The family of this 126-nucleotide RNA from Jaculus jaculus is "Small nucleolar RNA SNORA27". ACA27 is a member of the H/ACA class of snoRNA that guide the sites of modification of uridines to pseudouridines. The match comes from Rfam's covariance-model search (73 bits). The source organism's lineage runs through Eukaryota, Gnathostomata, Eutheria, Myomorpha and Jaculus. The base pairs follow the family's consensus structure.
[Rfam]
RNA sequence: AUACCUACUUAAAAUUUGCCAACUGAACUCAUGUUAUCUAUUGGCCAUUCAAGAGGGAAAAAGAAAAUGCCCUUCAAAAACCAGAGCAAACUUAGUGUUUGUGUUGUAACCUGUCAGGAAAUAUUC
Numbered sequence: 001a002u003a004c005c006u007a008c009u010u011a012a013a014a015u016u017u018g019c020c021a022a023c024u025g026a027a028c029u030c031a032u033g034u035u036a037u038c039u040a041u042u043g044g045c046c047a048u049u050c051a052a053g054a055g056g057g058a059a060a061a062a063g064a065a066a067a068u069g070c071c072c073u074u075c076a077a078a079a080a081c082c083a084g085a086g087c088a089a090a091c092u093u094a095g096u097g098u099u100u101g102u103g104u105u106g107u108a109a110c111c112u113g114u115c116a117g118g119a120a121a122u123a124u125u126c
Base pairs, nucleotide, nucleotide: 032060034058035057037056041052042051043050044049071118072117073116084104086102087101088100089099090098091097